[Rfam]
The family of this 113-nucleotide RNA sequence from Hibiscus trionum is "MIR1520 microRNA precursor family".
The base pairs follow the family's consensus structure, which was predicted with RNAalifold.
Its Rfam clan is "MIR1520 microRNA precursor clan".
Nucleotides: 113
Base pairs, nucleotide, nucleotide: 016104017103018102019101021099022098025095026094027093029091030090031089032088034086035085036084
Number, partner (000 for none) and nucleotide at each position: 001000a002000u003000u004000u005000a006000a007000u008000u009000a010000g011000a012000u013000g014000a015000u016104g017103a018102c019101a020000c021099g022098u023000g024000u025095c026094a027093c028000c029091a030090c031089c032088u033000u034086a035085u036084u037000g038000g039000a040000g041000g042000a043000c044000u045000u046000u047000a048000a049000u050000u051000a052000a053000u054000u055000u056000a057000a058000u059000a060000u061000a062000a063000u064000u065000u066000a067000a068000u069000u070000a071000a072000u073000c074000u075000u076000c077000u078000c079000c080000c081000u082000c083000c084036a085035a086034u087000c088032a089031g090030g091029u092000u093027g094026u095025g096000a097000c098022a099021c100000g101019u102018g103017u104016c105000a106000c107000a108000u109000g110000a111000u112000u113000g